A member of the RNA family "c-di-GMP-II-GAG riboswitch aptamer", 100 nucleotides long. Pairs were carried over by alignment from the consensus structure, which is taken from published work. Gene Ontology terms of the family: regulation of gene expression and cyclic-di-GMP binding. Clan: c-di-GMP_II riboswitch clan.

RNA sequence: CAGAACCAGGGAAGCGAUGAUCCCCGGGGUGACCAACGGUCGCCUAGCCGCGUGAGCGGCGCCCCGGGAUGAGCCAAUGGCGAGACCGACCCGUGGCCGC
Numbered sequence: 001c002a003g004a005a006c007c008a009g010g011g012a013a014g015c016g017a018u019g020a021u022c023c024c025c026g027g028g029g030u031g032a033c034c035a036a037c038g039g040u041c042g043c044c045u046a047g048c049c050g051c052g053u054g055a056g057c058g059g060c061g062c063c064c065c066g067g068g069a070u071g072a073g074c075c076a077a078u079g080g081c082g083a084g085a086c087c088g089a090c091c092c093g094u095g096g097c098c099g100c
Stems, first nucleotide, its partner, number of pairs: 003098001006095001009092003014074002023068007038087002040083005
Dot-bracket structure: ..(..(..(((..((.......(((((((........[[[[[[[.................)))))))....))....]]]]]..]]..)))..)..)..